RNA: mir-8/mir-141/mir-200 microRNA precursor family
Organism: Hymenochirus boettgeri
RNA sequence: AUGGACAUCUUACUAGACAGUGCUGGAUUUCUUUUAUCUUUUCUAACACUGUCUGGUAACGAUGUUUAA
Numbered sequence: 001a002u003g004g005a006c007a008u009c010u011u012a013c014u015a016g017a018c019a020g021u022g023c024u025g026g027a028u029u030u031c032u033u034u035u036a037u038c039u040u041u042u043c044u045a046a047c048a049c050u051g052u053c054u055g056g057u058a059a060c061g062a063u064g065u066u067u068a069a
Stems, first nucleotide, its partner, number of pairs: 002068008010059013024045004